[Rfam]
RNA: L31-Coriobacteria ribosomal protein leader
RNA sequence: GCUUUGGUUGGAAACCAAAGCUUGAAAAGGAG
Numbered sequence: 001g002c003u004u005u006g007g008u009u010g011g012a013a014a015c016c017a018a019a020g021c022u023u024g025a026a027a028a029g030g031a032g
Stems, first nucleotide, its partner, number of pairs: 001021008